[Rfam]
RNA sequence: AAAGUCCUGAAGGAGGAAUUAUCCGUACGCCUUCUUAGCACCGGGAAGCAGCGUCUGGGUAACCAGGGGUUGUAAGUUUCUUAUGGGCAAAGAUGCAGGCCGUAACGAAAGUGAACCUAUAUGUAGCCUCGUCAACUAAUUGAAGAUGCCGACCUUUUGGACAUCAAGGGAAGGCCGUAGUGCCUGGGAGUAGAAAACGCAAAUCCUUUCAGGUGAUCUUCCGGGGUAGCAGGGAU
Numbered sequence: 001a002a003a004g005u006c007c008u009g010a011a012g013g014a015g016g017a018a019u020u021a022u023c024c025g026u027a028c029g030c031c032u033u034c035u036u037a038g039c040a041c042c043g044g045g046a047a048g049c050a051g052c053g054u055c056u057g058g059g060u061a062a063c064c065a066g067g068g069g070u071u072g073u074a075a076g077u078u079u080c081u082u083a084u085g086g087g088c089a090a091a092g093a094u095g096c097a098g099g100c101c102g103u104a105a106c107g108a109a110a111g112u113g114a115a116c117c118u119a120u121a122u123g124u125a126g127c128c129u130c131g132u133c134a135a136c137u138a139a140u141u142g143a144a145g146a147u148g149c150c151g152a153c154c155u156u157u158u159g160g161a162c163a164u165c166a167a168g169g170g171a172a173g174g175c176c177g178u179a180g181u182g183c184c185u186g187g188g189a190g191u192a193g194a195a196a197a198c199g200c201a202a203a204u205c206c207u208u209u210c211a212g213g214u215g216a217u218c219u220u221c222c223g224g225g226g227u228a229g230c231a232g233g234g235a236u
Base pairs, nucleotide, nucleotide: 009034010033011032012031013030016028018026019025020202023199036090038088039087042085043084044081045080046078047077048073049072050071051070052069054067055066056065057064058063123230124228126227127226128225129224130223131222142221143220144219145218146217147216148175149174150173153169154168155167156166182214183213184212185211186210187209188208189207190206

The record is a 236-nucleotide RNA from Desulfobacter postgatei, which matches "Group II catalytic intron D1-D4-6" in Rfam. The match comes from Rfam's covariance-model search (76 bits). The family has 174 seed sequences and 1,617 matches in Rfam 15.1. About the family: Group II introns are found in rRNA, tRNA and mRNA of organelles in fungi, plants and protists, and also in mRNA in bacteria.